Rfam assigns this 373-nucleotide RNA sequence from Chitinophaga rupis to the family "Bacterial RNase P class A". On this family, see Frank and Pace, Annu Rev Biochem 1998: "Ribonuclease P: unity and diversity in a tRNA processing ribozyme".
[Rfam]
RNA sequence: ACUACAAACCGUGCUAUCGUCUUUCCCGUUAAACGGAAGGAAGGAAAGUCCGGACAGCAUAGGGCAACGCACCACCUAACGGGUGGGAUCCCGGCGCAGGCCGGGAUACAGACAGUGCCACAGAAAAUAACCGCCACGGCUUGCCGGGGUAAGGGUGAAAAUGUGGGGUAAGAGCCCACGUUCUGAUAUGGCAACAUGUUGGAAGGGUAAACCUUGCGUGCUGAAAUGCCAUGUAUACGGUCGUUUGAGGGCUGCCCGCCCGAUGACCGAGGGUAGGCAGAUACAGGUAACGCGUGAGCGUUAUCGCAGAUAAAUGAUAGCAGUUCCGGUGCAAACCGGGAAACAGAAUCCGGCUUACAGGUUUGUAGUUUUA
Numbered sequence: 001a002c003u004a005c006a007a008a009c010c011g012u013g014c015u016a017u018c019g020u021c022u023u024u025c026c027c028g029u030u031a032a033a034c035g036g037a038a039g040g041a042a043g044g045a046a047a048g049u050c051c052g053g054a055c056a057g058c059a060u061a062g063g064g065c066a067a068c069g070c071a072c073c074a075c076c077u078a079a080c081g082g083g084u085g086g087g088a089u090c091c092c093g094g095c096g097c098a099g100g101c102c103g104g105g106a107u108a109c110a111g112a113c114a115g116u117g118c119c120a121c122a123g124a125a126a127a128u129a130a131c132c133g134c135c136a137c138g139g140c141u142u143g144c145c146g147g148g149g150u151a152a153g154g155g156u157g158a159a160a161a162u163g164u165g166g167g168g169u170a171a172g173a174g175c176c177c178a179c180g181u182u183c184u185g186a187u188a189u190g191g192c193a194a195c196a197u198g199u200u201g202g203a204a205g206g207g208u209a210a211a212c213c214u215u216g217c218g219u220g221c222u223g224a225a226a227u228g229c230c231a232u233g234u235a236u237a238c239g240g241u242c243g244u245u246u247g248a249g250g251g252c253u254g255c256c257c258g259c260c261c262g263a264u265g266a267c268c269g270a271g272g273g274u275a276g277g278c279a280g281a282u283a284c285a286g287g288u289a290a291c292g293c294g295u296g297a298g299c300g301u302u303a304u305c306g307c308a309g310a311u312a313a314a315u316g317a318u319a320g321c322a323g324u325u326c327c328g329g330u331g332c333a334a335a336c337c338g339g340g341a342a343a344c345a346g347a348a349u350c351c352g353g354c355u356u357a358c359a360g361g362u363u364u365g366u367a368g369u370u371u372u373a
Stems, first nucleotide, its partner, number of pairs: 001369010011358001012322007020041007046356003050353005055223004062257004067219005072086005087109001088107008110214002115212002117208003131154002133150003137146003162180006182203009227279004238269005249261004286305008
It scores 260 bits against the family's covariance model.